[Rfam]
RNA sequence: GACAGAGUAAGAAAUAGCGCGUUAAGUGCCAACAGGAUGGGAUGUUGCCUGUGGACGAAAAAUCUUUUGAUUUGCGGUUCUAUUUCUGCAUUCGCUGCC
Numbered sequence: 001g002a003c004a005g006a007g008u009a010a011g012a013a014a015u016a017g018c019g020c021g022u023u024a025a026g027u028g029c030c031a032a033c034a035g036g037a038u039g040g041g042a043u044g045u046u047g048c049c050u051g052u053g054g055a056c057g058a059a060a061a062a063u064c065u066u067u068u069g070a071u072u073u074g075c076g077g078u079u080c081u082a083u084u085u086c087u088g089c090a091u092u093c094g095c096u097g098c099c
Stems, first nucleotide, its partner, number of pairs: 001099001003097003010087008019078001020076003026056002029054002032052005040093005060073004
RNA: THF (Tetrahydrofolate) riboswitch aptamer